[Rfam]
RNA sequence: CGCUCAAAUGGGUAACUGAUUGAGUGAUUAAGUAGAAGUCAGCAGAUGGCAUACGAAGACAUGGAUGUCGAAGGUA
Numbered sequence: 001c002g003c004u005c006a007a008a009u010g011g012g013u014a015a016c017u018g019a020u021u022g023a024g025u026g027a028u029u030a031a032g033u034a035g036a037a038g039u040c041a042g043c044a045g046a047u048g049g050c051a052u053a054c055g056a057a058g059a060c061a062u063g064g065a066u067g068u069c070g071a072a073g074g075u076a
Stems, first nucleotide, its partner, number of pairs: 001026002004023004009018003038047003049075002058069004
The family of this 76-nucleotide sequence from Osedax symbiont Rs1 is "Group II catalytic intron D1-D4-1". The source organism's lineage runs through Bacteria, Pseudomonadati, Pseudomonadota, Gammaproteobacteria and Oceanospirillaceae. Rfam links the family to the GO term Group II intron splicing. The pairing is the family consensus, mapped onto this sequence.